[Rfam]
RNA: Bacterial large subunit ribosomal RNA, nucleotides 1423 to 1696
RNA sequence: GAUAAAGGGAGUGAGAGACUCCCUCGCCGAAAGUCCAAGGGUUCCUGCUUAAAGUUAAUCUGAGCAGGGUUAGCCGGCCCCUAAGGCGAGGCCGAAAGGCGUAGUCGAUGGGAACCACGUUAAUAUUCGUGGGCCUGCAGGUGGUGACGGAUCGCGUGUGUUGUGAGGUCUUAUUGGAUUGAUCUUGCAGCGAAGCGGUUCCAGGAAAUAGCUCCUGCAUAUAGACCGUACCCUAAACCGACACUGGUGGACUGGUAGAGAAUACCAAGGCGCU
Numbered sequence: 001g002a003u004a005a006a007g008g009g010a011g012u013g014a015g016a017g018a019c020u021c022c023c024u025c026g027c028c029g030a031a032a033g034u035c036c037a038a039g040g041g042u043u044c045c046u047g048c049u050u051a052a053a054g055u056u057a058a059u060c061u062g063a064g065c066a067g068g069g070u071u072a073g074c075c076g077g078c079c080c081c082u083a084a085g086g087c088g089a090g091g092c093c094g095a096a097a098g099g100c101g102u103a104g105u106c107g108a109u110g111g112g113a114a115c116c117a118c119g120u121u122a123a124u125a126u127u128c129g130u131g132g133g134c135c136u137g138c139a140g141g142u143g144g145u146g147a148c149g150g151a152u153c154g155c156g157u158g159u160g161u162u163g164u165g166a167g168g169u170c171u172u173a174u175u176g177g178a179u180u181g182a183u184c185u186u187g188c189a190g191c192g193a194a195g196c197g198g199u200u201c202c203a204g205g206a207a208a209u210a211g212c213u214c215c216u217g218c219a220u221a222u223a224g225a226c227c228g229u230a231c232c233c234u235a236a237a238c239c240g241a242c243a244c245u246g247g248u249g250g251a252c253u254g255g256u257a258g259a260g261a262a263u264a265c266c267a268a269g270g271c272g273c274u
Stems, first nucleotide, its partner, number of pairs: 006024006025272004033252004039232002044068006053061002075228003080111002085106003089102001091100003115132005135224001136219002140215002143212001145210001149201004155197003160191005165184002167180004238247002254266004